The family of this 136-nucleotide RNA sequence from Menidia menidia is "Small nucleolar RNA SNORA84". Taxonomically the source falls in Menidia (Eukaryota, Eumetazoa, Teleostei, Osteoglossocephalai). The match comes from Rfam's covariance-model search (89 bits). Pairs were carried over by alignment from the consensus structure, which was predicted with WAR.
[Rfam]
RNA sequence: GCCUUGUGGUUCCUGGAGUCGGCUCCAAAGUGCUGAACUGCAGGUUUUUAUAAACAGGCACAUAGUAAUGUCUGCGAUUUUAUGCAUGGAGGCUGCCACUAUUGCAGCGCUCCAUAGCCCGGUUGCAGGGACACUU
Numbered sequence: 001g002c003c004u005u006g007u008g009g010u011u012c013c014u015g016g017a018g019u020c021g022g023c024u025c026c027a028a029a030g031u032g033c034u035g036a037a038c039u040g041c042a043g044g045u046u047u048u049u050a051u052a053a054a055c056a057g058g059c060a061c062a063u064a065g066u067a068a069u070g071u072c073u074g075c076g077a078u079u080u081u082a083u084g085c086a087u088g089g090a091g092g093c094u095g096c097c098a099c100u101a102u103u104g105c106a107g108c109g110c111u112c113c114a115u116a117g118c119c120c121g122g123u124u125g126c127a128g129g130g131a132c133a134c135u136u
Stems, first nucleotide, its partner, number of pairs: 001059004007050002012044004017039001019036005072128001074126006084118002086115004091110001092108005
Dot-bracket structure: ((((..((...((((.(.(((((........)))))..).))))....)).....))))............(.((((((....((((((.((((((.......))))).).)))).))..)))))).)........